[Rfam]
Shown here is a 58-nucleotide sequence from Macaca mulatta, a member of the family "mir-5697 microRNA precursor family". It is one of the family's seed sequences. Gene Ontology terms of the family: miRNA-mediated post-transcriptional gene silencing and RISC complex. The base pairs follow the family's consensus structure, which was predicted with RNAalifold. Lineage of the source: Eukaryota > Gnathostomata > Mammalia > Primates > Macaca.
RNA sequence: AAGUAGUUUCAUGAUAAAGGGUGUGUGGGAGGUCAACCUUUUAUCUGAAACUGCUUGA
Numbered sequence: 001a002a003g004u005a006g007u008u009u010c011a012u013g014a015u016a017a018a019g020g021g022u023g024u025g026u027g028g029g030a031g032g033u034c035a036a037c038c039u040u041u042u043a044u045c046u047g048a049a050a051c052u053g054c055u056u057g058a
Stems, first nucleotide, its partner, number of pairs: 001056011013045010026035003
Dot-bracket structure: (((((((((((.((((((((((...(((....))))))))))))))))))))))))..